Rfam assigns this 197-nucleotide RNA from Escherichia coli to the family "Gammaproteobacterial sRNA STnc100".
Pairs were carried over by alignment from the consensus structure, which was predicted with CMfinder.
The family has 24 seed sequences and 137 matches in Rfam 15.1.
It is annotated as a small RNA.
[Rfam]
RNA sequence: GCGGGGAGUUUGUUAAAAGAAACUGGCAUGGUGAAUCCCCCUGAGCGGAGGGGCAUAUCAGCGCAGGUGUUUCUACUCUAUCCUUUCUGUGCGGGUUCAGGUGCUGAUACUGAACUCACCGGGAGGCACCCGGCACCAUGCAUAUGGUUAACAGACACGUAGCGAAGCCCCUCUCCGGAGGGGCUUUUUUUAUGGGC
Dot-bracket structure: .........(((.............((((((((....(((((......)))))......((.....................))..(...).((((.(((.........))).)))).(((((.....)))))))))))))...)))........(.(.....(((((((((......)))))))))......).).